RNA: Staphylococcus sRNA sau-31
RNA sequence: GGUCGAAAAUUUCAGUCGCUGUGCCUUCUUUAUAGACAGUCCCUUUAUUCAUAACGAUAACAUGAU
Numbered sequence: 001g002g003u004c005g006a007a008a009a010u011u012u013c014a015g016u017c018g019c020u021g022u023g024c025c026u027u028c029u030u031u032a033u034a035g036a037c038a039g040u041c042c043c044u045u046u047a048u049u050c051a052u053a054a055c056g057a058u059a060a061c062a063u064g065a066u
Stems, first nucleotide, its partner, number of pairs: 002058004014044002018040005